RNA sequence: ACCUUCUAUAUAAGCACUGCACUAAAAUGGCAGAAACUAUUGUAGGAUCACAUCUUGGUUUUUUUAAUAAUGCUAGCAAAGUACACAGAGGAAGAAAAGGAACUGCAUUAGAUUGUAAACACUGGGGUAGAACUCUUUCUUAAUGUCCAGUGCCCAUGGUCUUAAGAUUUGGUGCAAUCUGU
Numbered sequence: 001a002c003c004u005u006c007u008a009u010a011u012a013a014g015c016a017c018u019g020c021a022c023u024a025a026a027a028u029g030g031c032a033g034a035a036a037c038u039a040u041u042g043u044a045g046g047a048u049c050a051c052a053u054c055u056u057g058g059u060u061u062u063u064u065u066a067a068u069a070a071u072g073c074u075a076g077c078a079a080a081g082u083a084c085a086c087a088g089a090g091g092a093a094g095a096a097a098a099g100g101a102a103c104u105g106c107a108u109u110a111g112a113u114u115g116u117a118a119a120c121a122c123u124g125g126g127g128u129a130g131a132a133c134u135c136u137u138u139c140u141u142a143a144u145g146u147c148c149a150g151u152g153c154c155c156a157u158g159g160u161c162u163u164a165a166g167a168u169u170u171g172g173u174g175c176a177a178u179c180u181g182u
Stems, first nucleotide, its partner, number of pairs: 017081002022076003027071002030068001033062002036059003044056005104176009124153001126151001128149001130147002
Shown here is a 182-nucleotide sequence from Hipposideros armiger, a member of the family "Small nucleolar RNA SNORA81". NCBI's taxonomy places the organism under Eukaryota, Chordata, Vertebrata, Euteleostomi, Hipposideros. Pairs were carried over by alignment from the consensus structure, which was predicted with WAR. The family has 28 seed sequences and 1,161 matches in Rfam 15.1. The family's RNA type in Rfam is H/ACA-box small nucleolar RNA. Gene Ontology terms of the family: RNA processing and nucleolus. The match comes from Rfam's covariance-model search (146 bits). A reference for the family is Gu et al. (2005), "A novel experimental approach for systematic identification of box H/ACA snoRNAs from eukaryotes", Nucleic Acids Res.